Bacterial small subunit ribosomal RNA: a 354-nucleotide part of an RNA from bacterium 1xD42-67. For this family Rfam cites "Crystal structure of the ribosome at 5.5 A resolution" (Yusupov et al., Science, 2001).
RNA sequence: GGUGUAAAGGGCGUGUAGGCGGGAAAGCAAGUCAGAUGUGAAAACCAUGGGCUCAACCUGUGGCCUGCAUUUGAAACUGUUUUUCUUGAGUACUGGAGAGGCAGACGGAAUUCCUAGUGUAGCGGUGAAAUGCGUAGAUAUUAGGAGGAACACCAGUGGCGAAGGCGGUCUGCUGGACAGCAACUGACGCUGAGGCGCGAAAGCGUGGGGAGCAAACAGGAUUAGAUACCCUGGUAGUCCACGCUGUAAACGAUGGAUACUAGGUGUGGGGGGACUGACCCCCUCCGUGCCGCAGUCAACACAAUAAGUAUCCCACCUGGGGAGUACGAUCGCAAGGUUGAAACUCAAAGGAAU
Numbered sequence: 001g002g003u004g005u006a007a008a009g010g011g012c013g014u015g016u017a018g019g020c021g022g023g024a025a026a027g028c029a030a031g032u033c034a035g036a037u038g039u040g041a042a043a044a045c046c047a048u049g050g051g052c053u054c055a056a057c058c059u060g061u062g063g064c065c066u067g068c069a070u071u072u073g074a075a076a077c078u079g080u081u082u083u084u085c086u087u088g089a090g091u092a093c094u095g096g097a098g099a100g101g102c103a104g105a106c107g108g109a110a111u112u113c114c115u116a117g118u119g120u121a122g123c124g125g126u127g128a129a130a131u132g133c134g135u136a137g138a139u140a141u142u143a144g145g146a147g148g149a150a151c152a153c154c155a156g157u158g159g160c161g162a163a164g165g166c167g168g169u170c171u172g173c174u175g176g177a178c179a180g181c182a183a184c185u186g187a188c189g190c191u192g193a194g195g196c197g198c199g200a201a202a203g204c205g206u207g208g209g210g211a212g213c214a215a216a217c218a219g220g221a222u223u224a225g226a227u228a229c230c231c232u233g234g235u236a237g238u239c240c241a242c243g244c245u246g247u248a249a250a251c252g253a254u255g256g257a258u259a260c261u262a263g264g265u266g267u268g269g270g271g272g273g274a275c276u277g278a279c280c281c282c283c284u285c286c287g288u289g290c291c292g293c294a295g296u297c298a299a300c301a302c303a304a305u306a307a308g309u310a311u312c313c314c315a316c317c318u319g320g321g322g323a324g325u326a327c328g329a330u331c332g333c334a335a336g337g338u339u340g341a342a343a344c345u346c347a348a349a350g351g352a353a354u
Base pairs, nucleotide, nucleotide: 001317002316003315009314011198012197013196014195016192018191019190020189022085023084024083025082026081027080028079030078031077032074033073034072035071036070037069038068039067040066045063046062047061048060049059050058051057089185090184091183093180094179095178100174101173102172103171104170105169106168107151111147112146113145114144115143116142117141118140122133123132124131159166160165203244204243205242206241207240208239212238213237217233218232219231220230255313256312257311258310259309260308263291264290265289266288267287268286269285270284271283272282273281295302296301319346320345321344328339329338330337331336
The family's consensus secondary structure is taken from published work.